Rfam assigns this 96-nucleotide sequence from Polynucleobacter kasalickyi to the family "SAH (S-adenosyl-L-homocysteine) riboswitch aptamer". The source organism's lineage runs through Bacteria, Pseudomonadati, Betaproteobacteria, Burkholderiaceae and Polynucleobacter. The match comes from Rfam's covariance-model search (49 bits).
RNA sequence: UUCUUCAAGGAGCGUUGCGAGGAUGUUUUCUUAUUUAAGAAAACACCCCAGGCUUGAAGGGGCUCUUAUGGGUCUUAGCAACGGCGCUCACUAACC
Numbered sequence: 001u002u003c004u005u006c007a008a009g010g011a012g013c014g015u016u017g018c019g020a021g022g023a024u025g026u027u028u029u030c031u032u033a034u035u036u037a038a039g040a041a042a043a044c045a046c047c048c049c050a051g052g053c054u055u056g057a058a059g060g061g062g063c064u065c066u067u068a069u070g071g072g073u074c075u076u077a078g079c080a081a082c083g084g085c086g087c088u089c090a091c092u093a094a095c096c
Stems, first nucleotide, its partner, number of pairs: 002060007021047002024045008

Gene Ontology terms of the family: S-adenosylhomocysteine metabolic process and regulation of gene expression.